[Rfam]
RNA sequence: AAAUCCUUUAACUCCAGUCCUGUGAGACUAAGAAGGAGCAUACACGUAAGCAUCACUUGUUGACGUUAUCUAUUUAGGUAAUAUCAACAAGUAAUGUUGGAUGCCCUCUUACCUAAUAGGUGAGAGGGCAUUUUUCA
Numbered sequence: 001a002a003a004u005c006c007u008u009u010a011a012c013u014c015c016a017g018u019c020c021u022g023u024g025a026g027a028c029u030a031a032g033a034a035g036g037a038g039c040a041u042a043c044a045c046g047u048a049a050g051c052a053u054c055a056c057u058u059g060u061u062g063a064c065g066u067u068a069u070c071u072a073u074u075u076a077g078g079u080a081a082u083a084u085c086a087a088c089a090a091g092u093a094a095u096g097u098u099g100g101a102u103g104c105c106c107u108c109u110u111a112c113c114u115a116a117u118a119g120g121u122g123a124g125a126g127g128g129c130a131u132u133u134u135u136c137a
Stems, first nucleotide, its partner, number of pairs: 004037006016029004055092009099133014
PyrR binding site: a 137-nucleotide sequence from Carnobacterium iners. From the family's description: This family represents the PyrR binding site and terminator structure. The match comes from Rfam's covariance-model search (56 bits). Rfam 15.1 lists 1,498 matches to the family in 930 species. Pairs were carried over by alignment from the consensus structure, which is taken from published work. Rfam links the family to the GO terms pyrimidine nucleobase transport and pyrimidine nucleobase biosynthetic process.